RNA sequence: UUACGUUGAGUCUUGGCACUGGGAGAAUUCACAGGAGUUUUGUAUAUGCCCGUGAAUUUCCUGAUGCCACAGCUCAAUGUAG
Numbered sequence: 001u002u003a004c005g006u007u008g009a010g011u012c013u014u015g016g017c018a019c020u021g022g023g024a025g026a027a028u029u030c031a032c033a034g035g036a037g038u039u040u041u042g043u044a045u046a047u048g049c050c051c052g053u054g055a056a057u058u059u060c061c062u063g064a065u066g067c068c069a070c071a072g073c074u075c076a077a078u079g080u081a082g
Base pairs, nucleotide, nucleotide: 003080004079005078006077007076008075009074010073014069015068016067017066018065020063021062022061023059025058026057029055030054031053032052034050

Overview:
This 82-nucleotide sequence from Helicoverpa armigera belongs to the Rfam family "mir-263 microRNA precursor family". A search with the family's covariance model found it, with a score of 68 bits. The literature on the family includes a 2009 paper in BMC Genomics by Li et al., "Direct sequencing and expression analysis of a large number of miRNAs in Aedes aegypti and a multi-species survey of novel mosquito miRNAs". Its family is annotated with miRNA-mediated post-transcriptional gene silencing and RISC complex in the Gene Ontology. The organism belongs to Helicoverpa, within Eukaryota.